Record summary: MIR8565 microRNA precursor family: a 154-nucleotide RNA from Amborella trichopoda. NCBI's taxonomy places the organism under Eukaryota, Spermatophyta, Magnoliopsida, Amborellaceae, Amborella.

[Rfam]
RNA sequence: CCCCCACCCAUGUGUAUAGGACUCUAAAUGAUCACCAUUAAAUUUAGCACGGAUCUCUAAAAAAAUUAUCACAUGGGUGUAGGACUUGACUUUUUUAGAGAUCUGUACUAAGUUUAAUGGUGAUCCUUUGGGGUCCUACACACAUGGAUGGGGG
Numbered sequence: 001c002c003c004c005c006a007c008c009c010a011u012g013u014g015u016a017u018a019g020g021a022c023u024c025u026a027a028a029u030g031a032u033c034a035c036c037a038u039u040a041a042a043u044u045u046a047g048c049a050c051g052g053a054u055c056u057c058u059a060a061a062a063a064a065a066u067u068a069u070c071a072c073a074u075g076g077g078u079g080u081a082g083g084a085c086u087u088g089a090c091u092u093u094u095u096u097a098g099a100g101a102u103c104u105g106u107a108c109u110a111a112g113u114u115u116a117a118u119g120g121u122g123a124u125c126c127u128u129u130g131g132g133g134u135c136c137u138a139c140a141c142a143c144a145u146g147g148a149u150g151g152g153g154g
Stems, first nucleotide, its partner, number of pairs: 002153005008147006015140001017138012030125003034121014049106016066089003069082001071080003